[Rfam]
RNA sequence: ACCAAUUUUAAAGCGCCAGAACUAACCCGGACGGAGAUAAGGUUAGUUGACGAGGUGGAGGUUUAUCGAAUGUUUCGGCGGAUGCCUCCCGGCCGCAAGUGCACGGCCGUUUUCCUGCUCCUUAAAUCAUUGAGGCGACUCAAUGGACAAAGGGAAGCAGGCUGCACAGGA
Numbered sequence: 001a002c003c004a005a006u007u008u009u010a011a012a013g014c015g016c017c018a019g020a021a022c023u024a025a026c027c028c029g030g031a032c033g034g035a036g037a038u039a040a041g042g043u044u045a046g047u048u049g050a051c052g053a054g055g056u057g058g059a060g061g062u063u064u065a066u067c068g069a070a071u072g073u074u075u076c077g078g079c080g081g082a083u084g085c086c087u088c089c090c091g092g093c094c095g096c097a098a099g100u101g102c103a104c105g106g107c108c109g110u111u112u113u114c115c116u117g118c119u120c121c122u123u124a125a126a127u128c129a130u131u132g133a134g135g136c137g138a139c140u141c142a143a144u145g146g147a148c149a150a151a152g153g154g155a156a157g158c159a160g161g162c163u164g165c166a167c168a169g170g171a
Stems, first nucleotide, its partner, number of pairs: 020048008057089005066078004090109006114161006128145007
Shown here is a 171-nucleotide RNA from Bacillus sp. B-jedd, a member of the family "glmS glucosamine-6-phosphate activated ribozyme aptamer". The family's consensus secondary structure is taken from published work. On this family, see Winkler et al., Nature 2004: "Control of gene expression by a natural metabolite-responsive ribozyme". Rfam classes the family as a riboswitch. A search with the family's covariance model found it, with a score of 125 bits. About the family: This entry contains a glucosamine-6-phosphate activated ribozyme that is found in the mRNA for GlmS. GlmS is an enzyme that uses fructose-6-phosphate and glutamine to generate glucosamine-6-phosphate.